[Rfam]
RNA sequence: UGGUGACCUGAGGCUCCCUGGCUGUCUCUCUGUCCCAGGCCCCUCCUGGCCGUGGGCACAGGCUGAGUCCCACUAGAGUCUGUGGGGUCCAGACCC
Number, nucleotide and partner (000 for none) at each position: 001u000002g095003g094004u093005g089006a088007c087008c086009u085010g000011a081012g080013g079014c078015u077016c076017c000018c000019u000020g000021g074022c000023u072024g071025u000026c000027u000028c067029u066030c065031u000032g063033u062034c061035c000036c000037a000038g000039g057040c056041c055042c054043c000044u052045c000046c000047u000048g000049g000050c000051c000052g044053u000054g042055g041056g040057c039058a000059c000060a000061g034062g033063c032064u000065g030066a029067g028068u000069c000070c000071c024072a023073c000074u021075a000076g016077a015078g014079u013080c012081u011082g000083u000084g000085g009086g008087g007088u006089c005090c000091a000092g000093a004094c003095c002096c000
This 96-nucleotide RNA sequence from Nyctereutes procyonoides belongs to the Rfam family "mir-8813 microRNA precursor family". Its family is annotated with miRNA-mediated post-transcriptional gene silencing and RISC complex in the Gene Ontology. The base pairs follow the family's consensus structure, which was predicted with RNAalifold. It scores 94 bits against the family's covariance model.